[Rfam]
This 147-nucleotide RNA sequence from Thermaerobacillus caldiproteolyticus belongs to the Rfam family "Ribosomal protein L10 leader".
The match comes from Rfam's covariance-model search (84 bits).

RNA sequence: AAGAGAAUAUCAUUUGUACCGUAGACAGUAGGUGCUCGAAUGAGCUUAAUUUCCUACCGAGGUGUUUGAACGUAUAGAAAAGUGUAUCGUCAUACACUUUAUAGUACCUCCAUGUCUACGUAGGCAUGGAGGUUUUUUGUGAUGCGG
Numbered sequence: 001a002a003g004a005g006a007a008u009a010u011c012a013u014u015u016g017u018a019c020c021g022u023a024g025a026c027a028g029u030a031g032g033u034g035c036u037c038g039a040a041u042g043a044g045c046u047u048a049a050u051u052u053c054c055u056a057c058c059g060a061g062g063u064g065u066u067u068g069a070a071c072g073u074a075u076a077g078a079a080a081a082g083u084g085u086a087u088c089g090u091c092a093u094a095c096a097c098u099u100u101a102u103a104g105u106a107c108c109u110c111c112a113u114g115u116c117u118a119c120g121u122a123g124g125c126a127u128g129g130a131g132g133u134u135u136u137u138u139g140u141g142a143u144g145c146g147g
Base pairs, nucleotide, nucleotide: 028057029056030055031054032053034045035044036043107132108131109130110129111128112127113126114125115124116123